The record is a 150-nucleotide RNA sequence from Canis lupus, which matches "U12 minor spliceosomal RNA" in Rfam. It is annotated as a spliceosomal small nuclear RNA. A search with the family's covariance model found it, with a score of 100 bits.
[Rfam]
RNA sequence: UAAGCUUAGACUUAUGAGUAAGGAAAAUGACAAUACAGAGUGAUGCCCAAAUCCUCAUUGCUAAUGUGAGAUGAAUUUUUGAGUGGGUAAAGGUUGCAUCUAAGGUGACCUGCCUACUUUGUGGGAUGCCUGGGAGUUGCGAUCUUCCCA
Numbered sequence: 001u002a003a004g005c006u007u008a009g010a011c012u013u014a015u016g017a018g019u020a021a022g023g024a025a026a027a028u029g030a031c032a033a034u035a036c037a038g039a040g041u042g043a044u045g046c047c048c049a050a051a052u053c054c055u056c057a058u059u060g061c062u063a064a065u066g067u068g069a070g071a072u073g074a075a076u077u078u079u080u081g082a083g084u085g086g087g088u089a090a091a092g093g094u095u096g097c098a099u100c101u102a103a104g105g106u107g108a109c110c111u112g113c114c115u116a117c118u119u120u121g122u123g124g125g126a127u128g129c130c131u132g133g134g135a136g137u138u139g140c141g142a143u144c145u146u147c148c149c150a
Stems, first nucleotide, its partner, number of pairs: 005022004033052002038047001054070005084150004091145007100134002103131005109125005

Record summary
The source organism's lineage runs through Eukaryota, Eumetazoa, Vertebrata, Theria and Canis lupus.